[Rfam]
RNA sequence: GGCCUGUGAUGUAUGAAAUUUGUCCGUACCAUCUGAGAUUCUGUUUUAGGUUUCUCUGAUCGAUACACAAUUCUUGAAUCUGAGGUUU
Dot-bracket structure: ((((...............................................................................)))).

Shown here is an 88-nucleotide RNA from Cicer arietinum, a member of the family "small nucleolar RNA snoR117". The match comes from Rfam's covariance-model search (61 bits). Gene Ontology terms of the family: RNA processing and nucleolus. For this family Rfam cites "Mining small RNA sequencing data: a new approach to identify small nucleolar RNAs in Arabidopsis" (Chen and Wu, Nucleic Acids Res, 2009). Pairs were carried over by alignment from the consensus structure, which was predicted with RNAalifold. The family has 6 seed sequences and 419 matches in Rfam 15.1.